RNA sequence: AAUUCUGAUAGAGGUUGCGAACGAUCAAGAGUAAAAAUCCGGAGAAGAAUGGGCUUCAAGGAUGGGUUUUGAAAGGGAUGUUUGCCGAAGUGGAGAAAAACCCCUUGUUAUUUUUCUGCUGGUCCUGCGUUGAAUAAAUGUAGGAUUGUCAAAAUGAUCGAUUCAUUUUGGAGAGCUAUCUCAUCG
Numbered sequence: 001a002a003u004u005c006u007g008a009u010a011g012a013g014g015u016u017g018c019g020a021a022c023g024a025u026c027a028a029g030a031g032u033a034a035a036a037a038u039c040c041g042g043a044g045a046a047g048a049a050u051g052g053g054c055u056u057c058a059a060g061g062a063u064g065g066g067u068u069u070u071g072a073a074a075g076g077g078a079u080g081u082u083u084g085c086c087g088a089a090g091u092g093g094a095g096a097a098a099a100a101c102c103c104c105u106u107g108u109u110a111u112u113u114u115u116c117u118g119c120u121g122g123u124c125c126u127g128c129g130u131u132g133a134a135u136a137a138a139u140g141u142a143g144g145a146u147u148g149u150c151a152a153a154a155u156g157a158u159c160g161a162u163u164c165a166u167u168u169u170g171g172a173g174a175g176c177u178a179u180c181u182c183a184u185c186g
Stems, first nucleotide, its partner, number of pairs: 007180005017085006024079003034070008089120010100109001121147011149171007
The record is a 186-nucleotide sequence from Bacillus sp. FJAT-50079, which matches "Lysine riboswitch aptamer" in Rfam. The source organism's lineage runs through Bacteria, Bacillati, Bacillota, Bacillaceae and Bacillus.